Rfam assigns this 65-nucleotide RNA to the family "S15-Flavobacteria ribosomal protein leader". Rfam's curators put it in the seed alignment. For this family Rfam cites "Discovery of 20 novel ribosomal leader candidates in bacteria and archaea" (Eckert and Weinberg, BMC Microbiol, 2020). The family's consensus secondary structure is taken from published work.
RNA sequence: UAUAUUUGCACCUCGAAAGAUAAGCUUUCGAUUACAUAACAAUCAUUUACAACAAUAUUAGAAUG
Numbered sequence: 001u002a003u004a005u006u007u008g009c010a011c012c013u014c015g016a017a018a019g020a021u022a023a024g025c026u027u028u029c030g031a032u033u034a035c036a037u038a039a040c041a042a043u044c045a046u047u048u049a050c051a052a053c054a055a056u057a058u059u060a061g062a063a064u065g
Base pairs, nucleotide, nucleotide: 014030015029016028017027018026019025